[Rfam]
RNA: SAM riboswitch aptamer (S box leader)
Organism: Firmicutes bacterium CAG:110
RNA sequence: GCCUUAUCAAGAGUGGUGGAGGGAACGGCCCGAUGAAACCCGGCAACCUGUUUAUACAAGGUGCCAAAUCCGGCGGCAAACGAAAGAUGAGGA
Numbered sequence: 001g002c003c004u005u006a007u008c009a010a011g012a013g014u015g016g017u018g019g020a021g022g023g024a025a026c027g028g029c030c031c032g033a034u035g036a037a038a039c040c041c042g043g044c045a046a047c048c049u050g051u052u053u054a055u056a057c058a059a060g061g062u063g064c065c066a067a068a069u070c071c072g073g074c075g076g077c078a079a080a081c082g083a084a085a086g087a088u089g090a091g092g093a
Base pairs, nucleotide, nucleotide: 002092003091004090005089006088007087008086013041015040016039017038021031022030023029026072027071028070042065043064044063045062047061048060049058050057051056069085074082075081